The family of this 95-nucleotide RNA sequence from Sesamum indicum is "Small nucleolar RNA snoR27".
The literature on the family includes a 2001 paper in RNA by Brown et al., "Multiple snoRNA gene clusters from Arabidopsis".
Its family is annotated with nucleolus and RNA processing in the Gene Ontology.
Pairs were carried over by alignment from the consensus structure, which was predicted with WAR.
The family has 6 seed sequences and 649 matches in Rfam 15.1.
The family's RNA type in Rfam is C/D-box small nucleolar RNA.
The family is grouped with related families in Rfam's "snR68 clan".

[Rfam]
RNA sequence: GUUGGAUCGAUGAUGCGUUGAAGAAAAACUGCGUUAUCUAUCUGAUAUUUCCAAUUCGGAAUGAAGAUAGCUUCUUAAUCUUCCUGAGAUCCCUU
Numbered sequence: 001g002u003u004g005g006a007u008c009g010a011u012g013a014u015g016c017g018u019u020g021a022a023g024a025a026a027a028a029c030u031g032c033g034u035u036a037u038c039u040a041u042c043u044g045a046u047a048u049u050u051c052c053a054a055u056u057c058g059g060a061a062u063g064a065a066g067a068u069a070g071c072u073u074c075u076u077a078a079u080c081u082u083c084c085u086g087a088g089a090u091c092c093c094u095u
Stems, first nucleotide, its partner, number of pairs: 001095001004092004